[Rfam]
RNA: Xanthine riboswitch aptamer (NMT1 RNA)
RNA sequence: GCAGGGAGUAGAAGCUGUCAGCGCCGCGCGCGGCGCAGGUCAUUGCUCCGACA
Numbered sequence: 001g002c003a004g005g006g007a008g009u010a011g012a013a014g015c016u017g018u019c020a021g022c023g024c025c026g027c028g029c030g031c032g033g034c035g036c037a038g039g040u041c042a043u044u045g046c047u048c049c050g051a052c053a
Base pairs, nucleotide, nucleotide: 005049006048007047008046009045010044015038019039021036022035023034024033025032026031